Rfam assigns this 119-nucleotide RNA sequence from Bacillus safensis to the family "PyrR binding site".
The base pairs follow the family's consensus structure, which is taken from published work.
About the family: This family represents the PyrR binding site and terminator structure.
By type it is a cis-regulatory element.
NCBI's taxonomy places the organism under Bacteria, Bacilli, Caryophanales, Bacillaceae, Bacillus.
Rfam links the family to the GO terms pyrimidine nucleobase biosynthetic process and pyrimidine nucleobase transport.
RNA sequence: AAACCUUUUAAAAGAAGUCCAGUGAGGCUGACAAGGGUUCUAAAUGGAGCAGAAUGCACAAAAGUGCCGCUGCUUCUUUUGGAGAACCCUAAGCUGCCGAGGCUUAGGGUUUUUUUGAA
Numbered sequence: 001a002a003a004c005c006u007u008u009u010a011a012a013a014g015a016a017g018u019c020c021a022g023u024g025a026g027g028c029u030g031a032c033a034a035g036g037g038u039u040c041u042a043a044a045u046g047g048a049g050c051a052g053a054a055u056g057c058a059c060a061a062a063a064g065u066g067c068c069g070c071u072g073c074u075u076c077u078u079u080u081g082g083a084g085a086a087c088c089c090u091a092a093g094c095u096g097c098c099g100a101g102g103c104u105u106a107g108g109g110u111u112u113u114u115u116u117g118a119a
Base pairs, nucleotide, nucleotide: 003038004037005036006035007034008033016029017028018027019026046079047078048077049076051074052073054071056067057066058065059064082114083113084112085111086110087109088108089107090106091105092104093103094102095101
Dot-bracket structure: ..((((((.......((((......))))...)))))).......((((.((.(.((((....))))...).)).))))..((((((((((((((.....)))))))))))))).....